RNA sequence: CAUUGAAGUGAUGAGAAAGUUAUCGGAAAACCCAUGUCGAUCAAAAAUACUUCCAGACUACAAUUAUCUGAUCAUUG
Numbered sequence: 001c002a003u004u005g006a007a008g009u010g011a012u013g014a015g016a017a018a019g020u021u022a023u024c025g026g027a028a029a030a031c032c033c034a035u036g037u038c039g040a041u042c043a044a045a046a047a048u049a050c051u052u053c054c055a056g057a058c059u060a061c062a063a064u065u066a067u068c069u070g071a072u073c074a075u076u077g
Stems, first nucleotide, its partner, number of pairs: 001077002004074003